[Rfam]
RNA sequence: GGAACCUUUAAAUCCAGUCCCGAGAGGCUGGCAAGGGCAACGGUUAGGCUGACGGUCAAAGUGGCGCGCUCCAUUUUGACUGUGCCGACAAAAGCUUCUUGUCCCUUGGGCAAGAAGCUUUUUUAC
Numbered sequence: 001g002g003a004a005c006c007u008u009u010a011a012a013u014c015c016a017g018u019c020c021c022g023a024g025a026g027g028c029u030g031g032c033a034a035g036g037g038c039a040a041c042g043g044u045u046a047g048g049c050u051g052a053c054g055g056u057c058a059a060a061g062u063g064g065c066g067c068g069c070u071c072c073a074u075u076u077u078g079a080c081u082g083u084g085c086c087g088a089c090a091a092a093a094g095c096u097u098c099u100u101g102u103c104c105c106u107u108g109g110g111c112a113a114g115a116a117g118c119u120u121u122u123u124u125a126c
Stems, first nucleotide, its partner, number of pairs: 005036004014031006052083013090122014